[Rfam]
RNA sequence: AGUGAGGAUAGAGGCGCAAAAACCAUCAGUACAUAAUCGGAGGAUAAUGAGGUCCUAGGAUGAUUAUGGAAAGGGGAAUUUGCCGAAGCUUUUUUAGAAUCUCAUGUUCUUAAAGCUGGGUCUGUGUUGAAUAAAUACAGGACUGUCAUAUAGGGAACUAUAUGGAGGGCUAUCGCACAG
Numbered sequence: 001a002g003u004g005a006g007g008a009u010a011g012a013g014g015c016g017c018a019a020a021a022a023c024c025a026u027c028a029g030u031a032c033a034u035a036a037u038c039g040g041a042g043g044a045u046a047a048u049g050a051g052g053u054c055c056u057a058g059g060a061u062g063a064u065u066a067u068g069g070a071a072a073g074g075g076g077a078a079u080u081u082g083c084c085g086a087a088g089c090u091u092u093u094u095u096a097g098a099a100u101c102u103c104a105u106g107u108u109c110u111u112a113a114a115g116c117u118g119g120g121u122c123u124g125u126g127u128u129g130a131a132u133a134a135a136u137a138c139a140g141g142a143c144u145g146u147c148a149u150a151u152a153g154g155g156a157a158c159u160a161u162a163u164g165g166a167g168g169g170c171u172a173u174c175g176c177a178c179a180g
Base pairs, nucleotide, nucleotide: 007174008173009172010171011170016083017082018081019080020079023076024075032068033067034066035065036064037063038062039061087117088116089115090114091113092112096110097109098108099107100106118144119143121141122140123139124138125137126136127135128134146165147164148163149162150161151160152159
RNA: Lysine riboswitch aptamer